Bacterial RNase P class A: a 306-nucleotide RNA sequence from Tenacibaculum sp. SG-28.
About the family: Ribonuclease P (RNase P) is a ubiquitous endoribonuclease, found in archaea, bacteria and eukarya as well as chloroplasts and mitochondria.
NCBI's taxonomy places the organism under Bacteria, Flavobacteriia, Flavobacteriales, Flavobacteriaceae, Tenacibaculum.
The family's consensus secondary structure is taken from published work.
It is annotated as a ribozyme.
RNA sequence: AAGGCAGCUCUAUCUUAUCGACUUGAUAAACAAGUAGGAAAGUCCGGGCACCAAAGAGUAGUAUAGCGGAUAACAUCCGUCCGAUGUAAAUCGAGGACAAGUGCAACAGAAAGUAUGUACAGGUUAUGCUGUAGUGAAACCAGGUAAACUCUAUACGGUGCAAUGCCACGUAUAUUAGAAAUUGAGUGUUACUCGCACGAUUCUAAGGGGUAGGCAGAUUGAUUUCGUUAGUAAUUUCGAAACUAGAUAAAUGAUAAGAGCCUUGUUGUAAGGAUACAGAACCCGGCUUAUUGAGCUGCUUUUAAA
Numbered sequence: 001a002a003g004g005c006a007g008c009u010c011u012a013u014c015u016u017a018u019c020g021a022c023u024u025g026a027u028a029a030a031c032a033a034g035u036a037g038g039a040a041a042g043u044c045c046g047g048g049c050a051c052c053a054a055a056g057a058g059u060a061g062u063a064u065a066g067c068g069g070a071u072a073a074c075a076u077c078c079g080u081c082c083g084a085u086g087u088a089a090a091u092c093g094a095g096g097a098c099a100a101g102u103g104c105a106a107c108a109g110a111a112a113g114u115a116u117g118u119a120c121a122g123g124u125u126a127u128g129c130u131g132u133a134g135u136g137a138a139a140c141c142a143g144g145u146a147a148a149c150u151c152u153a154u155a156c157g158g159u160g161c162a163a164u165g166c167c168a169c170g171u172a173u174a175u176u177a178g179a180a181a182u183u184g185a186g187u188g189u190u191a192c193u194c195g196c197a198c199g200a201u202u203c204u205a206a207g208g209g210g211u212a213g214g215c216a217g218a219u220u221g222a223u224u225u226c227g228u229u230a231g232u233a234a235u236u237u238c239g240a241a242a243c244u245a246g247a248u249a250a251a252u253g254a255u256a257a258g259a260g261c262c263u264u265g266u267u268g269u270a271a272g273g274a275u276a277c278a279g280a281a282c283c284c285g286g287c288u289u290a291u292u293g294a295g296c297u298g299c300u301u302u303u304a305a306a
Base pairs, nucleotide, nucleotide: 001302002301003300004299005298006297007296008295009294010293012291013259014258015257016256017255018254019253021035022034023033024032025031040289041288042287044286045285046284047283048282049160050159051158052157056194057193058192059191061156062155063154064153065152066080067079068078069077070076081095082093083092084091085090096151097150101149102148103145104144118133119132120131121130122129164216165215166214167213175206176205177204178203179202186198187197188196189195223242224241225240226239227238230235